[Rfam]
RNA sequence: UCGCAUCCGCCAUCCGGUCAAGCCGUGUCGCGGAAGGUUUCUUAAACCAGCUAAUGCACUUUCAAGAAGUGCGGAGGUCCUGCG
Numbered sequence: 001u002c003g004c005a006u007c008c009g010c011c012a013u014c015c016g017g018u019c020a021a022g023c024c025g026u027g028u029c030g031c032g033g034a035a036g037g038u039u040u041c042u043u044a045a046a047c048c049a050g051c052u053a054a055u056g057c058a059c060u061u062u063c064a065a066g067a068a069g070u071g072c073g074g075a076g077g078u079c080c081u082g083c084g
Stems, first nucleotide, its partner, number of pairs: 002084003006034005015025004036048004050078003056072007
Shown here is an 84-nucleotide RNA sequence from Corticibacter populi, a member of the family "SucA RNA motif". The source organism's lineage runs through Bacteria, Betaproteobacteria, Burkholderiales, Comamonadaceae and Corticibacter. For this family Rfam cites "Identification of 22 candidate structured RNAs in bacteria using the CMfinder comparative genomics pipeline" (Weinberg et al., Nucleic Acids Res, 2007). The family's consensus secondary structure is taken from published work. The match comes from Rfam's covariance-model search (72 bits).